The family of this 120-nucleotide RNA from Streptomyces sp. Ru87 is "Streptomyces-metH RNA". A search with the family's covariance model found it, with a score of 97 bits. NCBI's taxonomy places the organism under Bacteria, Actinomycetota, Actinomycetes, Streptomycetaceae, Streptomyces.

[Rfam]
RNA sequence: CCUGUCCGCUGACUGAAACACCCGAGGCUGUUCCCGCCCGGGCGGCUACCCUGACCGGGUGCGCUCUGCUCAGAAGAGCGCAAAGCCGACAGCCGUCGCAUCUCAGGGAGUCUUUCCAUG
Numbered sequence: 001c002c003u004g005u006c007c008g009c010u011g012a013c014u015g016a017a018a019c020a021c022c023c024g025a026g027g028c029u030g031u032u033c034c035c036g037c038c039c040g041g042g043c044g045g046c047u048a049c050c051c052u053g054a055c056c057g058g059g060u061g062c063g064c065u066c067u068g069c070u071c072a073g074a075a076g077a078g079c080g081c082a083a084a085g086c087c088g089a090c091a092g093c094c095g096u097c098g099c100a101u102c103u104c105a106g107g108g109a110g111u112c113u114u115u116c117c118a119u120g
Base pairs, nucleotide, nucleotide: 060082061081062080063079065077066076067075085099086098088097089096090095